[Rfam]
RNA sequence: UGCGUGUAAGCUGUAACGGAGUGCUUCGCGCACGGGCUGAAUGUUUAA
Numbered sequence: 001u002g003c004g005u006g007u008a009a010g011c012u013g014u015a016a017c018g019g020a021g022u023g024c025u026u027c028g029c030g031c032a033c034g035g036g037c038u039g040a041a042u043g044u045u046u047a048a
Base pairs, nucleotide, nucleotide: 009038010037011036012035021033022032023031024030
RNA: ssnA RNA